[Rfam]
RNA sequence: UCCAAAUGAUACUUCUUCUAACAUUGCUGCACUGUUGCCAACAGUGCAGCAAUGUUAGAAGAAGUAUUAUUUGGAA
Numbered sequence: 001u002c003c004a005a006a007u008g009a010u011a012c013u014u015c016u017u018c019u020a021a022c023a024u025u026g027c028u029g030c031a032c033u034g035u036u037g038c039c040a041a042c043a044g045u046g047c048a049g050c051a052a053u054g055u056u057a058g059a060a061g062a063a064g065u066a067u068u069a070u071u072u073g074g075a076a
Base pairs, nucleotide, nucleotide: 001076003074005071006070007069008068009067010066012064013063014062015061016060017059018058019057022054023053024052025051026050027049028048029047030046